[Rfam]
RNA sequence: CCCGGGCGGGCGCUGGUGGCCGGUGUGGUACAGAGAAGCCGGCUUGUUUACUGCCCGCCCGGG
Numbered sequence: 001c002c003c004g005g006g007c008g009g010g011c012g013c014u015g016g017u018g019g020c021c022g023g024u025g026u027g028g029u030a031c032a033g034a035g036a037a038g039c040c041g042g043c044u045u046g047u048u049u050a051c052u053g054c055c056c057g058c059c060c061g062g063g
Stems, first nucleotide, its partner, number of pairs: 001063011015048001018044007025031002
RNA: MAT2A 3'UTR stem loop F
Organism: Vireo altiloquus